[Rfam]
RNA sequence: AUGAACCUUCGGGGCAGGGUGUAAUUCCCUACCGGCGGUGAGGAUGCGUUCGUGCGUCUAAGCCCGCGACUCCCGGUGUAACAGCCGGGACUGAUUUGGUGAAAUUCCAAGGCCGACGGUGAAAGUCCGGAUGGGAGAAGGUUAUA
Numbered sequence: 001a002u003g004a005a006c007c008u009u010c011g012g013g014g015c016a017g018g019g020u021g022u023a024a025u026u027c028c029c030u031a032c033c034g035g036c037g038g039u040g041a042g043g044a045u046g047c048g049u050u051c052g053u054g055c056g057u058c059u060a061a062g063c064c065c066g067c068g069a070c071u072c073c074c075g076g077u078g079u080a081a082c083a084g085c086c087g088g089g090a091c092u093g094a095u096u097u098g099g100u101g102a103a104a105u106u107c108c109a110a111g112g113c114c115g116a117c118g119g120u121g122a123a124a125g126u127c128c129g130g131a132u133g134g135g136a137g138a139a140g141g142u143u144a145u146a
Stems, first nucleotide, its partner, number of pairs: 004143007017029003031126002033115002035067004062113002071090002095111005117129003

Notes:
A member of the RNA family "FMN riboswitch aptamer (RFN element)" from Paenibacillus swuensis, 146 nucleotides long. Rfam's curators write: The RFN element is a highly conserved domain that is found frequently in the 5'-untranslated regions of prokaryotic mRNAs that encode for flavin mononucleotide (FMN) biosynthesis and transport proteins. The organism belongs to Paenibacillus, within Bacteria. Gene Ontology term of the family: FMN binding.